[Rfam]
RNA sequence: UGCAGGCAUGACUGUAAGUCAUUUUAGAUAAAAGUGUCUGCUAAAUGACAUACA
Numbered sequence: 001u002g003c004a005g006g007c008a009u010g011a012c013u014g015u016a017a018g019u020c021a022u023u024u025u026a027g028a029u030a031a032a033a034g035u036g037u038c039u040g041c042u043a044a045a046u047g048a049c050a051u052a053c054a
Base pairs, nucleotide, nucleotide: 013043014041015040016039020036021035022034023033024032025031
Dot-bracket structure: ............((((...((((((.....))))))..))).)...........